[Rfam]
RNA sequence: UCCAGCGGUAGUCAGCUGUCUGGGUCAGUAUCAUGCCUGUGACGGUGUUACACUGCUGGGAGAUAAAAGUACUGCCUGUUUUAUCUGUCUGUCACUGUCUCCGUUCUGGAGGCAGCUGACACCAGUUUGGGGCAAUACUGUGCUUCUCUGAGAGUGUGCUGAGCAGUUAACAUUCUACUCAGCACUAGUCUGGGAGCAUACACA
Numbered sequence: 001u002c003c004a005g006c007g008g009u010a011g012u013c014a015g016c017u018g019u020c021u022g023g024g025u026c027a028g029u030a031u032c033a034u035g036c037c038u039g040u041g042a043c044g045g046u047g048u049u050a051c052a053c054u055g056c057u058g059g060g061a062g063a064u065a066a067a068a069g070u071a072c073u074g075c076c077u078g079u080u081u082u083a084u085c086u087g088u089c090u091g092u093c094a095c096u097g098u099c100u101c102c103g104u105u106c107u108g109g110a111g112g113c114a115g116c117u118g119a120c121a122c123c124a125g126u127u128u129g130g131g132g133c134a135a136u137a138c139u140g141u142g143c144u145u146c147u148c149u150g151a152g153a154g155u156g157u158g159c160u161g162a163g164c165a166g167u168u169a170a171c172a173u174u175c176u177a178c179u180c181a182g183c184a185c186u187a188g189u190c191u192g193g194g195a196g197c198a199u200a201c202a203c204a
Base pairs, nucleotide, nucleotide: 001060002059003058004057005056006055007054008053009052011051012050015046016045017044018043019042020041021039022038023037024036025035069138070137071136073134074133075132076131077130083128086125090121091120092119093118094117095115096114097113099111100110101109102108140199141198142197143196144195145194146193147192156185157184158183160181161180162179163178165176166175
RNA: Small nucleolar RNA SNORA74
Organism: Podarcis muralis